[Rfam]
RNA sequence: UAAUUUCAAGGGAGGAAUGAUGUUCAAAGUGAAGCCCUAAGAAAAGGAACCUGAGUCUCAGGUCUGUGAUGGAGUUACUUUCUUCCUGACCUUCCUUGACCUGAA
Numbered sequence: 001u002a003a004u005u006u007c008a009a010g011g012g013a014g015g016a017a018u019g020a021u022g023u024u025c026a027a028a029g030u031g032a033a034g035c036c037c038u039a040a041g042a043a044a045a046g047g048a049a050c051c052u053g054a055g056u057c058u059c060a061g062g063u064c065u066g067u068g069a070u071g072g073a074g075u076u077a078c079u080u081u082c083u084u085c086c087u088g089a090c091c092u093u094c095c096u097u098g099a100c101c102u103g104a105a
Stems, first nucleotide, its partner, number of pairs: 009096007
RNA: Small nucleolar RNA SNORD124